[Rfam]
Notes:
chrB-a RNA: a 74-nucleotide RNA.
RNA sequence: AGUAUGGGGAAGCGAUCUCCCCAUGAGGCGACAGCUGAAGAAUCGCGCCCGUCUUUAUUCGAGGGCGCAUCAUG
Dot-bracket structure: ....((((((.......)))))).....................((((((............))))))......
Numbered sequence: 001a002g003u004a005u006g007g008g009g010a011a012g013c014g015a016u017c018u019c020c021c022c023a024u025g026a027g028g029c030g031a032c033a034g035c036u037g038a039a040g041a042a043u044c045g046c047g048c049c050c051g052u053c054u055u056u057a058u059u060c061g062a063g064g065g066c067g068c069a070u071c072a073u074g
Stems, first nucleotide, its partner, number of pairs: 005023006045068006

Rfam classes the family as a cis-regulatory element.